[Rfam]
RNA sequence: CAUCGCGAUGCUCUUCAAUCAUGGAGACAUCGUGAUGAGGAUACUUUCAAAGCGCCAGCUCAAGGAGCUGGUCCUCUACUCGCCGCAACACGUCGCGCGGCUGGAAAAGGCAGGCCAAUUCCCCAAGCGGGUACAGCUGGGCCCGAACAGAGUGGGAUGGGUUGAGGACGAAGUGCUGGACUGGCUUCAGCAACGGCUGGAUGGCCGCGAAGAGUCCAACCGACACUCCUGAUACAGGAGCCGGGUGGCCAGGCGUGCACAGCUU
Numbered sequence: 001c002a003u004c005g006c007g008a009u010g011c012u013c014u015u016c017a018a019u020c021a022u023g024g025a026g027a028c029a030u031c032g033u034g035a036u037g038a039g040g041a042u043a044c045u046u047u048c049a050a051a052g053c054g055c056c057a058g059c060u061c062a063a064g065g066a067g068c069u070g071g072u073c074c075u076c077u078a079c080u081c082g083c084c085g086c087a088a089c090a091c092g093u094c095g096c097g098c099g100g101c102u103g104g105a106a107a108a109g110g111c112a113g114g115c116c117a118a119u120u121c122c123c124c125a126a127g128c129g130g131g132u133a134c135a136g137c138u139g140g141g142c143c144c145g146a147a148c149a150g151a152g153u154g155g156g157a158u159g160g161g162u163u164g165a166g167g168a169c170g171a172a173g174u175g176c177u178g179g180a181c182u183g184g185c186u187u188c189a190g191c192a193a194c195g196g197c198u199g200g201a202u203g204g205c206c207g208c209g210a211a212g213a214g215u216c217c218a219a220c221c222g223a224c225a226c227u228c229c230u231g232a233u234a235c236a237g238g239a240g241c242c243g244g245g246u247g248g249c250c251a252g253g254c255g256u257g258c259a260c261a262g263c264u265u
Stems, first nucleotide, its partner, number of pairs: 001037010012027006055200006064188011077175004081170002083167002086164004091159004096154003101150003109143003113138003121131003202251007220244003226240006252264003

Rfam assigns this 265-nucleotide sequence from Ruegeria pomeroyi to the family "Ruegeria trans44 sRNA". A reference for the family is Rivers et al. (2016), "Experimental Identification of Small Non-Coding RNAs in the Model Marine Bacterium Ruegeria pomeroyi DSS-3", Front Microbiol. Taxonomically the source falls in Ruegeria pomeroyi (Bacteria, Pseudomonadati, Pseudomonadota, Rhodobacterales). By type it is a small RNA. Rfam 15.1 lists 33 matches to the family in 29 species.